[Rfam]
RNA: Small nucleolar RNA SNORD113/SNORD114 family
RNA sequence: UUGGUUGAUGAUGACCACCGGUGGCAUUUGACUCAUACAUGAUGACUUUGAGUCUGAAACACCAAGAUCCAA
Numbered sequence: 001u002u003g004g005u006u007g008a009u010g011a012u013g014a015c016c017a018c019c020g021g022u023g024g025c026a027u028u029u030g031a032c033u034c035a036u037a038c039a040u041g042a043u044g045a046c047u048u049u050g051a052g053u054c055u056g057a058a059a060c061a062c063c064a065a066g067a068u069c070c071a072a
Base pairs, nucleotide, nucleotide: 003069004068005067006066